[Rfam]
The record is a 100-nucleotide RNA sequence from Nasonia vitripennis, which matches "mir-928 microRNA precursor family" in Rfam.
Pairs were carried over by alignment from the consensus structure, which was predicted with RNAalifold.
The sequence is in the family's curated seed alignment.
RNA sequence: GUCCAGUACUCGUGGCUGUGGAAGCUCGCGAACGUGACGCAGUCGCCUUACAGCUAUCUAUGGACGAACGCGAGCACGGCGCCGGAGCUCGUGGCCGGAC
Numbered sequence: 001g002u003c004c005a006g007u008a009c010u011c012g013u014g015g016c017u018g019u020g021g022a023a024g025c026u027c028g029c030g031a032a033c034g035u036g037a038c039g040c041a042g043u044c045g046c047c048u049u050a051c052a053g054c055u056a057u058c059u060a061u062g063g064a065c066g067a068a069c070g071c072g073a074g075c076a077c078g079g080c081g082c083c084g085g086a087g088c089u090c091g092u093g094g095c096c097g098g099a100c
Stems, first nucleotide, its partner, number of pairs: 001100004006095002009087003014083003018080002021077001024075005034065002038062002041059002
Dot-bracket structure: ((((.((.(((..(((.((.(..(((((.....((..((.((...............)).)).)).....))))).).))))).)))......)).))))